[Rfam]
Nucleotides: 096
Stems, first nucleotide, its partner, number of pairs: 007083003011045004016039001017032005051076004057070004
Number, partner (000 for none) and nucleotide at each position: 001000a002000u003000g004000g005000g006000g007083u008082g009081c010000u011045a012044g013043g014042g015000g016039u017032c018031c019030g020029c021028u022000u023000u024000a025000c026000a027000a028021g029020g030019u031018g032017g033000u034000g035000a036000g037000a038000a039016a040000a041000a042014c043013c044012c045011u046000u047000u048000g049000a050000a051076c052075c053074u054073g055000a056000u057070g058069c059068g060067g061000g062000u063000a064000a065000u066000g067060c068059c069058g070057c071000c072000g073054u074053a075052g076051g077000g078000a079000a080000u081009g082008c083007a084000g085000u086000c087000c088000u089000c090000u091000a092000a093000a094000a095000g096000a